[Rfam]
RNA sequence: GAUUCUAUGAUGAUUUAUUAAAUUCUUUUCUGACAUCUCUAAUGAACCGUUGUGAUUCAAAUCAGUUUAAUAAAUUUCUGAAGUU
Numbered sequence: 001g002a003u004u005c006u007a008u009g010a011u012g013a014u015u016u017a018u019u020a021a022a023u024u025c026u027u028u029u030c031u032g033a034c035a036u037c038u039c040u041a042a043u044g045a046a047c048c049g050u051u052g053u054g055a056u057u058c059a060a061a062u063c064a065g066u067u068u069a070a071u072a073a074a075u076u077u078c079u080g081a082a083g084u085u
Base pairs, nucleotide, nucleotide: 001085002084003083042053043052044051045050

Rfam assigns this 85-nucleotide RNA sequence from Drosophila ananassae to the family "Small nucleolar RNA Me28S-Gm3255". The literature on the family includes a 2005 paper in RNA by Huang et al., "Genome-wide analyses of two families of snoRNA genes from Drosophila melanogaster, demonstrating the extensive utilization of introns for coding of snoRNAs". It is one of the family's seed sequences. NCBI's taxonomy places the organism under Eukaryota, Bilateria, Drosophilidae, Drosophila, ananassae species complex.